[Rfam]
RNA sequence: UCAUAAGUUUUCUAGGGUUCCGCAAUAAUUAUUGGACUGGACCGAGAGAAAGCUCGCAGUGAUUUACUGUGCCACGGAGGGAUAAAAGCCCGGGAGAA
Numbered sequence: 001u002c003a004u005a006a007g008u009u010u011u012c013u014a015g016g017g018u019u020c021c022g023c024a025a026u027a028a029u030u031a032u033u034g035g036a037c038u039g040g041a042c043c044g045a046g047a048g049a050a051a052g053c054u055c056g057c058a059g060u061g062a063u064u065u066a067c068u069g070u071g072c073c074a075c076g077g078a079g080g081g082a083u084a085a086a087a088g089c090c091c092g093g094g095a096g097a098a
Base pairs, nucleotide, nucleotide: 007053008052009051010050011049012048015043016042020040021039022037023034024033025032026031055071056070057069058068059067060066073093075096079091080090081089
This 98-nucleotide RNA from Ornithinibacillus halotolerans belongs to the Rfam family "Guanidine-I riboswitch aptamer". Taxonomically the source falls in Ornithinibacillus (Bacteria, Bacillati, Bacillota, Bacilli). Gene Ontology term of the family: regulation of gene expression. The base pairs follow the family's consensus structure. The match comes from Rfam's covariance-model search (82 bits).